[Rfam]
RNA sequence: UGACUAGCGGAGGUUAGAAGAAG
Numbered sequence: 001u002g003a004c005u006a007g008c009g010g011a012g013g014u015u016a017g018a019a020g021a022a023g
Base pairs, nucleotide, nucleotide: 004017005016006015007014008013

This 23-nucleotide RNA from Lentivirus humimdef1 belongs to the Rfam family "HIV-1 stem-loop 3 Psi packaging signal". It is annotated as a cis-regulatory element. It is one of the family's seed sequences. Pairs were carried over by alignment from the consensus structure, which is taken from published work.